[Rfam]
Nucleotides: 097
Stems, first nucleotide, its partner, number of pairs: 002092006013081003018077003026071001028069003
Number, partner (000 for none) and nucleotide at each position: 001000g002092g003091g004090c005089u006088g007087g008000c009000u010000u011000u012000a013081g014080c015079u016000c017000a018077g019076c020075g021000g022000u023000u024000c025000c026071u027000g028069c029068g030067a031000c032000a033000g034000u035000a036000u037000u038000a039000u040000a041000g042000c043000a044000a045000c046000c047000u048000c049000u050000u051000c052000g053000c054000a055000g056000a057000g058000u059000u060000g061000a062000g063000u064000g065000g066000c067030u068029u069028g070000a071026a072000a073000u074000a075020u076019g077018c078000a079015g080014g081013c082000a083000u084000u085000c086000u087007c088006u089005a090004g091003c092002c093000c094000u095000u096000u097000u
Shown here is a 97-nucleotide RNA sequence from Prolemur simus, a member of the family "Vault RNA". The organism belongs to Prolemur, within Eukaryota. This family of RNAs are found as part of the enigmatic vault ribonucleoprotein complex. The family has 73 seed sequences and 2,873 matches in Rfam 15.1.